[Rfam]
RNA sequence: UUUUCAGGUAGGAUAAUCUUUAACUGUUUCUGCUUUUAGAGGCAGAUUGGAACGUGAUAAUUGAAGUUUGCAUGAUUUGUGAUUAGCAUCUCUUCAUAAUCAGGACUUAUGGCACACUGAUUGCUCCUAUUUGAU
Numbered sequence: 001u002u003u004u005c006a007g008g009u010a011g012g013a014u015a016a017u018c019u020u021u022a023a024c025u026g027u028u029u030c031u032g033c034u035u036u037u038a039g040a041g042g043c044a045g046a047u048u049g050g051a052a053c054g055u056g057a058u059a060a061u062u063g064a065a066g067u068u069u070g071c072a073u074g075a076u077u078u079g080u081g082a083u084u085a086g087c088a089u090c091u092c093u094u095c096a097u098a099a100u101c102a103g104g105a106c107u108u109a110u111g112g113c114a115c116a117c118u119g120a121u122u123g124c125u126c127c128u129a130u131u132u133g134a135u
Stems, first nucleotide, its partner, number of pairs: 024045003028042001029040004074092002078088002080085001097123007